[Rfam]
RNA sequence: GUAAAGCGAAACUAGGGUUCCGGCUUUCUGCUGAAAGUGUCUGGUCCGAGAGUUUCCGGCUUCGUCGUGACGAGGCUCCACGGAGGGAUAAAAGCCCGGGAGAU
Number, nucleotide and partner (000 for none) at each position: 001g000002u000003a000004a000005a000006g000007c000008g056009a055010a054011a053012c052013u000014a000015g047016g046017g000018u000019u000020c044021c043022g041023g038024c037025u036026u035027u034028c033029u000030g000031c000032u000033g028034a027035a026036a025037g024038u023039g000040u000041c022042u000043g021044g020045u000046c016047c015048g000049a000050g000051a000052g012053u011054u010055u009056c008057c000058g077059g076060c075061u074062u073063c072064g071065u070066c000067g000068u000069g000070a065071c064072g063073a062074g061075g060076c059077u058078c000079c099080a000081c102082g000083g000084a000085g097086g096087g095088a000089u000090a000091a000092a000093a000094g000095c087096c086097c085098g000099g079100g000101a000102g081103a000104u000
RNA: Guanidine-I riboswitch aptamer